[Rfam]
RNA sequence: GUACCAUUUUAAGGUAGCUGCAGUACUUUAAGAGGCUAACACAGAAGGGUACAGUAAGUCUUCAUAAAACCCAGAGAACAGCCUGGAGAACUCCUCUUUGGAUCCUGUCUGGAGUCACAGCU
Number, nucleotide and partner (000 for none) at each position: 001g000002u051003a050004c049005c048006a000007u046008u045009u044010u043011a000012a000013g000014g040015u039016a000017g037018c000019u035020g000021c032022a000023g000024u000025a000026c000027u000028u000029u000030a000031a000032g021033a000034g000035g019036c000037u017038a000039a015040c014041a000042c000043a010044g009045a008046a007047g000048g005049g004050u003051a002052c000053a000054g000055u000056a000057a000058g116059u000060c114061u113062u112063c111064a110065u000066a000067a000068a000069a000070c000071c101072c100073a099074g098075a097076g096077a095078a000079c000080a092081g091082c000083c000084u089085g000086g000087a000088g000089a084090a000091c081092u080093c000094c000095u077096c076097u075098u074099u073100g072101g071102a000103u000104c000105c000106u000107g000108u000109c000110u064111g063112g062113a061114g060115u000116c058117a000118c000119a000120g000121c000122u000
About this RNA:
The record is a 122-nucleotide sequence from Orycteropus afer, which matches "Small nucleolar RNA SNORA26" in Rfam. On this family, see Huttenhofer et al., EMBO J 2001: "RNomics: an experimental approach that identifies 201 candidates for novel, small, non-messenger RNAs in mouse". The base pairs follow the family's consensus structure, which was predicted with RNAalifold. Rfam's curators write: The snoRNA HBI-6 belong to the H/ACA family of snoRNAs, guiding the pseudouridylation of position U4522 if the 28S rRNA. HBI-6 is the human orthologue of mouse MBI-6 snoRNA. The family's RNA type in Rfam is H/ACA-box small nucleolar RNA. The family has 76 seed sequences and 1,943 matches in Rfam 15.1.